[Rfam]
The record is a 96-nucleotide RNA sequence from Pan troglodytes, which matches "Y RNA" in Rfam. The match comes from Rfam's covariance-model search (40 bits). Y RNAs are components of the Ro ribonucleoprotein particle (Ro RNP), in association with Ro60 and La proteins. The Y RNAs and Ro60 and La proteins are well conserved, but the function of the Ro RNP is not known. The family's RNA type in Rfam is non-coding RNA gene.

RNA sequence: GGCUGAUCAGAUGGUAGUGGAUUAUCAAAAUUUAUUAACAUUAGUGUCAAUGUACUUGCUAUACAACCCCCACACUGCCAAAUUUGACUGUCUUAA
Numbered sequence: 001g002g003c004u005g006a007u008c009a010g011a012u013g014g015u016a017g018u019g020g021a022u023u024a025u026c027a028a029a030a031u032u033u034a035u036u037a038a039c040a041u042u043a044g045u046g047u048c049a050a051u052g053u054a055c056u057u058g059c060u061a062u063a064c065a066a067c068c069c070c071c072a073c074a075c076u077g078c079c080a081a082a083u084u085u086g087a088c089u090g091u092c093u094u095a096a
Base pairs, nucleotide, nucleotide: 001092002091003090005089007087008086010085011084015080016076017075018074019073033061034060037057038056